[Rfam]
RNA sequence: GACCGGAAACGGUGUUCACGCCGCAUCCGGCAUUCGGUGCUCAAUGCCUGAUGCGACGCUUACCGCGUCUUAUCAGGCC
Numbered sequence: 001g002a003c004c005g006g007a008a009a010c011g012g013u014g015u016u017c018a019c020g021c022c023g024c025a026u027c028c029g030g031c032a033u034u035c036g037g038u039g040c041u042c043a044a045u046g047c048c049u050g051a052u053g054c055g056a057c058g059c060u061u062a063c064c065g066c067g068u069c070u071u072a073u074c075a076g077g078c079c
Stems, first nucleotide, its partner, number of pairs: 003030005011022004046078008055069005
The family of this 79-nucleotide RNA sequence from Escherichia coli is "Nucleoid-associated noncoding RNA 4 (CssrE)".
The family's RNA type in Rfam is small RNA.
The match comes from Rfam's covariance-model search (66 bits).
The family has 3 seed sequences and 870 matches in Rfam 15.1.
Gene Ontology terms of the family: bacterial nucleoid, protein binding and bacterial nucleoid DNA packaging.
For this family Rfam cites "An integrated approach for finding overlooked genes in Shigella" (Peng et al., PLoS One, 2011).